About this RNA:
Shown here is a 166-nucleotide RNA sequence from Hwanghaeella grinnelliae, a member of the family "FMN riboswitch aptamer (RFN element)". From the family's description: The RFN element is a highly conserved domain that is found frequently in the 5'-untranslated regions of prokaryotic mRNAs that encode for flavin mononucleotide (FMN) biosynthesis and transport proteins. This element is a metabolite-dependent riboswitch that directly binds FMN in the absence of proteins. In Bacillus subtilis, the riboswitch most likely controls gene expression by causing premature transcription termination within the 5' untranslated region of the ribDEAHT operon and precluding access to the ribosome-binding site of ypaA mRNA.The FMN riboswitch structure, reported in present an FMN-bound six-stem junction, adopts a butterfly-like scaffold, stapled together by opposingly directed but nearly identically folded peripheral domains. The base pairs follow the family's consensus structure, which is taken from published work. For this family Rfam cites "Regulation of riboflavin biosynthesis and transport genes in bacteria by transcriptional and translational attenuation" (Vitreschak et al., Nucleic Acids Res, 2002). NCBI's taxonomy places the organism under Bacteria, Pseudomonadati, Pseudomonadota, Alphaproteobacteria, Hwanghaeella. A search with the family's covariance model found it, with a score of 108 bits.
[Rfam]
RNA sequence: UUUCGUUCUCAGGGCGGGGCGAAAUUCCCCACCGGCGGUAAGCGGCCCAGUUGCCAUGAUUGGCCCGUAAGCCCGCGAGCGCCUUCUUCAUUGUCAGGGGGAAGGGUCAGCAGACCAGGUGAGAUUCCUGGGCCGACGGUCAUAGUCCGGAUGGAAGAGAACAUGC
Numbered sequence: 001u002u003u004c005g006u007u008c009u010c011a012g013g014g015c016g017g018g019g020c021g022a023a024a025u026u027c028c029c030c031a032c033c034g035g036c037g038g039u040a041a042g043c044g045g046c047c048c049a050g051u052u053g054c055c056a057u058g059a060u061u062g063g064c065c066c067g068u069a070a071g072c073c074c075g076c077g078a079g080c081g082c083c084u085u086c087u088u089c090a091u092u093g094u095c096a097g098g099g100g101g102a103a104g105g106g107u108c109a110g111c112a113g114a115c116c117a118g119g120u121g122a123g124a125u126u127c128c129u130g131g132g133c134c135g136a137c138g139g140u141c142a143u144a145g146u147c148c149g150g151a152u153g154g155a156a157g158a159g160a161a162c163a164u165g166c
Stems, first nucleotide, its partner, number of pairs: 005162006017029003031146002033135002035076004071133002079111002115131005137149003